The family of this 98-nucleotide RNA sequence from Rhododendron williamsianum is "mir-399 microRNA precursor family". The organism belongs to Rhododendron, within Eukaryota. A search with the family's covariance model found it, with a score of 73 bits.
[Rfam]
RNA sequence: GGGUGCAUUACUGGGCAACUCCUCCCUUGGCAGGCGGCUACUUGAAACAUUGCUCAAGUUCGCCUACUGCCAAAGGAGAUUUGCCCCGCAAUUCACCA
Numbered sequence: 001g002g003g004u005g006c007a008u009u010a011c012u013g014g015g016c017a018a019c020u021c022c023u024c025c026c027u028u029g030g031c032a033g034g035c036g037g038c039u040a041c042u043u044g045a046a047a048c049a050u051u052g053c054u055c056a057a058g059u060u061c062g063c064c065u066a067c068u069g070c071c072a073a074a075g076g077a078g079a080u081u082u083g084c085c086c087c088g089c090a091a092u093u094c095a096c097c098a
Stems, first nucleotide, its partner, number of pairs: 005094001007092003011088001013086006022078004028072006036064003
Rfam describes the family as follows. mir-399 was identified in both Arabidopsis thaliana and Oryza sativa computationally and was later experimentally verified. mir-399 is thought to target mRNAs coding for a phosphatase transporter. The mature sequence is excised from the 3' arm of the hairpin. On this family, see Jones-Rhoades and Bartel, Mol Cell 2004: "Computational Identification of Plant MicroRNAs and Their Targets, Including a Stress-Induced miRNA".